[Rfam]
Shown here is a 225-nucleotide RNA sequence from Nodularia spumigena, a member of the family "HNH endonuclease-associated RNA and ORF (HEARO) RNA". Rfam 15.1 lists 952 matches to the family in 249 species. The family's RNA type in Rfam is non-coding RNA gene. For this family Rfam cites "Exceptional structured noncoding RNAs revealed by bacterial metagenome analysis" (Weinberg et al., Nature, 2009).
RNA sequence: GUCAAAAAAUCUCCUUCACCCGUGAUCAAAUAGAGAGAGCAUAAAUAAACGGAGUAAUCUGUAGUUUAUGUGAACCAAACCACUCAAAACAUGAGUAAACGUUAUCUAGGUCAUAACACCUUGGGAUUCGCUAGUCCCCUGCCAUGUUGCUACUUAUUAAACAAUCCGCAAGGAUAGUGUAUUUAGCAUAACAAGCUCAGAUAACAAGGUUGAAGCAAACAUUAC
Numbered sequence: 001g002u003c004a005a006a007a008a009a010u011c012u013c014c015u016u017c018a019c020c021c022g023u024g025a026u027c028a029a030a031u032a033g034a035g036a037g038a039g040c041a042u043a044a045a046u047a048a049a050c051g052g053a054g055u056a057a058u059c060u061g062u063a064g065u066u067u068a069u070g071u072g073a074a075c076c077a078a079a080c081c082a083c084u085c086a087a088a089a090c091a092u093g094a095g096u097a098a099a100c101g102u103u104a105u106c107u108a109g110g111u112c113a114u115a116a117c118a119c120c121u122u123g124g125g126a127u128u129c130g131c132u133a134g135u136c137c138c139c140u141g142c143c144a145u146g147u148u149g150c151u152a153c154u155u156a157u158u159a160a161a162c163a164a165u166c167c168g169c170a171a172g173g174a175u176a177g178u179g180u181a182u183u184u185a186g187c188a189u190a191a192c193a194a195g196c197u198c199a200g201a202u203a204a205c206a207a208g209g210u211u212g213a214a215g216c217a218a219a220c221a222u223u224a225c
Stems, first nucleotide, its partner, number of pairs: 001075002003072002006069001008067001014039002016036002078211004083095004101205007109197003116147002120141001123138005128221001130216003149187004155181003161178002164175004